[Rfam]
RNA sequence: GUAGCAUAAUGAGGAUGAAUUUACAAUAUUCCGAUAAAUUCAUGAAGGAAUAUUUACCUCCUACUCAUUCUGA
Numbered sequence: 001g002u003a004g005c006a007u008a009a010u011g012a013g014g015a016u017g018a019a020u021u022u023a024c025a026a027u028a029u030u031c032c033g034a035u036a037a038a039u040u041c042a043u044g045a046a047g048g049a050a051u052a053u054u055u056a057c058c059u060c061c062u063a064c065u066c067a068u069u070c071u072g073a
Stems, first nucleotide, its partner, number of pairs: 006068002009065001029049002031044001
The record is a 73-nucleotide RNA from Sesamum indicum, which matches "Small nucleolar RNA Z105" in Rfam. Rfam links the family to the GO terms RNA processing and nucleolus. The family's RNA type in Rfam is C/D-box small nucleolar RNA. The match comes from Rfam's covariance-model search (53 bits). For this family Rfam cites "The high diversity of snoRNAs in plants: identification and comparative study of 120 snoRNA genes from Oryza sativa" (Chen et al., Nucleic Acids Res, 2003).